[Rfam]
RNA sequence: CUGUGCUAGAUGGGGAGGUAGCGGUGCCCUGAACCUGCAAUCCGCUGUAGCAGGAUCGAACACCAUAUUGAGGCUCAGAGGCUGCGGAGCAGCCCCGUGUAAGUGGCGAUGAUAGUCGGGUCCUGCGCAAUGGAGAGUCAUGAACCCCGUCAGAUCCGGAAGGAAGCAGCGGUAAGUGAUAAACUUCAUGUGCCGUGGGAGUGCCUGGCUUGAGUUAACUGCAUGGGUAACGUCCGUGGAUCUGAGUCGAAUUAUGGCCGCACAG
Numbered sequence: 001c002u003g004u005g006c007u008a009g010a011u012g013g014g015g016a017g018g019u020a021g022c023g024g025u026g027c028c029c030u031g032a033a034c035c036u037g038c039a040a041u042c043c044g045c046u047g048u049a050g051c052a053g054g055a056u057c058g059a060a061c062a063c064c065a066u067a068u069u070g071a072g073g074c075u076c077a078g079a080g081g082c083u084g085c086g087g088a089g090c091a092g093c094c095c096c097g098u099g100u101a102a103g104u105g106g107c108g109a110u111g112a113u114a115g116u117c118g119g120g121u122c123c124u125g126c127g128c129a130a131u132g133g134a135g136a137g138u139c140a141u142g143a144a145c146c147c148c149g150u151c152a153g154a155u156c157c158g159g160a161a162g163g164a165a166g167c168a169g170c171g172g173u174a175a176g177u178g179a180u181a182a183a184c185u186u187c188a189u190g191u192g193c194c195g196u197g198g199g200a201g202u203g204c205c206u207g208g209c210u211u212g213a214g215u216u217a218a219c220u221g222c223a224u225g226g227g228u229a230a231c232g233u234c235c236g237u238g239g240a241u242c243u244g245a246g247u248c249g250a251a252u253u254a255u256g257g258c259c260g261c262a263c264a265g
Stems, first nucleotide, its partner, number of pairs: 001265006009057003012030004017025001019023001034054005063257005069251001072248005080241001082239007095226006103219002105216003114210008122199006128190002131188005137180005147172004155164003
Dot-bracket structure: ((((((..(((((((.(.(...).).))))...(((((...........)))))))).....(((((.(..(((((...(.(((((((......((((((..(((((......((((((((((((((((.(((((.(((((.....((((....(((....)))....))))...)))))...)))))))...))))))...))))))))...))).)).))))))......))))))).)..)))))..).)))))..))))))

This 265-nucleotide sequence from Peptoclostridium litorale belongs to the Rfam family "Bacterial large signal recognition particle RNA". Rfam classes the family as a non-coding RNA gene. Lineage of the source: Bacteria > Clostridia > Peptoclostridiaceae > Peptoclostridium > Peptoclostridium litorale.